[Rfam]
RNA sequence: CAUAUGCUCGUCUCAAAGCCUAAGCCAUGCAUGUCUCAGUACAUACUUUACCAAAGUGAAACCGCGAAUGGCUCAUUACAUCAGUUAUGGUUCCUUAGAUCGUACGCAUCCUACUUGGAUACCUGUGGCAAUUCCAGAGCUAAUACAUGCUACAGGUGUCUCCGGCCGGGCAACCGGACGGGGUGCCGUUACCAUUCAAAAGACCAAACGGUCCGCUUCUGCGGCCGACUCAUUUGGUGACUCUAAGUAACCUCUAGGCAGAUCGCACGGCAAGCACCGGCGAGCGCAUCUAUCAAAUGUCUGCCUCAUCACACUGUGGAUGGUGGGUUAUUGGCCCACCCUGGUGAUUACGGGUAACGGGGAAUCAGGGUUCGAUUCCGGAGAGGGAGCCUGAGAAACGGCUACCACAUCUAUGGAAGGCAGCAGGCACGCAAAUUACCCACUCCCGGCACGGGGAGGUAGUGACGAAAAAUAACGAUGCGGGACUCAUCCGAGGCCCCGUAAUCGGAAUGGAUCCACCCUAAACAGUUGGGUGAACCUAUCGGAGUGCAAGUCUGGUGCCAGCAGACGCCGGUAAGUCCAGCUCCGAUAGGCGUAU
Numbered sequence: 001c002a003u004a005u006g007c008u009c010g011u012c013u014c015a016a017a018g019c020c021u022a023a024g025c026c027a028u029g030c031a032u033g034u035c036u037c038a039g040u041a042c043a044u045a046c047u048u049u050a051c052c053a054a055a056g057u058g059a060a061a062c063c064g065c066g067a068a069u070g071g072c073u074c075a076u077u078a079c080a081u082c083a084g085u086u087a088u089g090g091u092u093c094c095u096u097a098g099a100u101c102g103u104a105c106g107c108a109u110c111c112u113a114c115u116u117g118g119a120u121a122c123c124u125g126u127g128g129c130a131a132u133u134c135c136a137g138a139g140c141u142a143a144u145a146c147a148u149g150c151u152a153c154a155g156g157u158g159u160c161u162c163c164g165g166c167c168g169g170g171c172a173a174c175c176g177g178a179c180g181g182g183g184u185g186c187c188g189u190u191a192c193c194a195u196u197c198a199a200a201a202g203a204c205c206a207a208a209c210g211g212u213c214c215g216c217u218u219c220u221g222c223g224g225c226c227g228a229c230u231c232a233u234u235u236g237g238u239g240a241c242u243c244u245a246a247g248u249a250a251c252c253u254c255u256a257g258g259c260a261g262a263u264c265g266c267a268c269g270g271c272a273a274g275c276a277c278c279g280g281c282g283a284g285c286g287c288a289u290c291u292a293u294c295a296a297a298u299g300u301c302u303g304c305c306u307c308a309u310c311a312c313a314c315u316g317u318g319g320a321u322g323g324u325g326g327g328u329u330a331u332u333g334g335c336c337c338a339c340c341c342u343g344g345u346g347a348u349u350a351c352g353g354g355u356a357a358c359g360g361g362g363a364a365u366c367a368g369g370g371u372u373c374g375a376u377u378c379c380g381g382a383g384a385g386g387g388a389g390c391c392u393g394a395g396a397a398a399c400g401g402c403u404a405c406c407a408c409a410u411c412u413a414u415g416g417a418a419g420g421c422a423g424c425a426g427g428c429a430c431g432c433a434a435a436u437u438a439c440c441c442a443c444u445c446c447c448g449g450c451a452c453g454g455g456g457a458g459g460u461a462g463u464g465a466c467g468a469a470a471a472a473u474a475a476c477g478a479u480g481c482g483g484g485a486c487u488c489a490u491c492c493g494a495g496g497c498c499c500c501g502u503a504a505u506c507g508g509a510a511u512g513g514a515u516c517c518a519c520c521c522u523a524a525a526c527a528g529u530u531g532g533g534u535g536a537a538c539c540u541a542u543c544g545g546a547g548u549g550c551a552a553g554u555c556u557g558g559u560g561c562c563a564g565c566a567g568a569c570g571c572c573g574g575u576a577a578g579u580c581c582a583g584c585u586c587c588g589a590u591a592g593g594c595g596u597a598u
Base pairs, nucleotide, nucleotide: 002598003597004596005595006594007593008591011470013468014467017463018430024428025427026426028425029424030423033065034064039062040061045057046056072383073382074381082303083302084301087298088297091296092295097291098290099289100288114149116147117146123139124138126136127135128134160183161182162181163180166177167176189250190249191248192247203238204237205236206235214223215222216221263283264282265281266280268279269278270277305354306353307352313345314344315343320342322340323339324338325337326336327335358380359379360378361377362373363372364371365370385406386405388403389402390401408419410417411416436461438460439459440458444456445455446454447453448452476507477506478505479503480502481501482500483499484498486495487494488493514534515533516531518530520528542589543588544587545586546585547584555583556582557581558580564571565570
RNA: Eukaryotic small subunit ribosomal RNA, nucleotides 25 to 622
Organism: Lepisma saccharinum